A member of the RNA family "raiA RNA", 241 nucleotides long.
Rfam's curators put it in the seed alignment.
[Rfam]
RNA sequence: CCUGCCCGGGUCUGUGGUUGCGGGCGCGCAGGCGUCCCAGUCCAAGGUAGAUGCGGCCGAAAGGACCCACGUAAGCCGGCGGUUCGCCGUCGCGCGAGCAUGGCGCAUCUUAGGGGUAAGUCGUACCGCCCGAUUACAGUCGCAUCCCGCGGCUUCGGGCGAGAGGGCCGGUAGUGAGAUCACAUCAAGCGGAAGCUCCGGUAUGCGAGUGUGGGGCCAAAGACCAGGUCAGCCGGGCGGG
Numbered sequence: 001c002c003u004g005c006c007c008g009g010g011u012c013u014g015u016g017g018u019u020g021c022g023g024g025c026g027c028g029c030a031g032g033c034g035u036c037c038c039a040g041u042c043c044a045a046g047g048u049a050g051a052u053g054c055g056g057c058c059g060a061a062a063g064g065a066c067c068c069a070c071g072u073a074a075g076c077c078g079g080c081g082g083u084u085c086g087c088c089g090u091c092g093c094g095c096g097a098g099c100a101u102g103g104c105g106c107a108u109c110u111u112a113g114g115g116g117u118a119a120g121u122c123g124u125a126c127c128g129c130c131c132g133a134u135u136a137c138a139g140u141c142g143c144a145u146c147c148c149g150c151g152g153c154u155u156c157g158g159g160c161g162a163g164a165g166g167g168c169c170g171g172u173a174g175u176g177a178g179a180u181c182a183c184a185u186c187a188a189g190c191g192g193a194a195g196c197u198c199c200g201g202u203a204u205g206c207g208a209g210u211g212u213g214g215g216g217c218c219a220a221a222g223a224c225c226a227g228g229u230c231a232g233c234c235g236g237g238c239g240g241g
Base pairs, nucleotide, nucleotide: 001241002240003239004238005237006236007235008234009233012232013231014230015226016225017224018223019222044212046210047057049110050109051108052107053106054105055104066103067102078090101219122205123204124203125202126201127161128160129159130158131157132156133155165198166197167196168195174190175189178186179185180184
By type it is a riboswitch.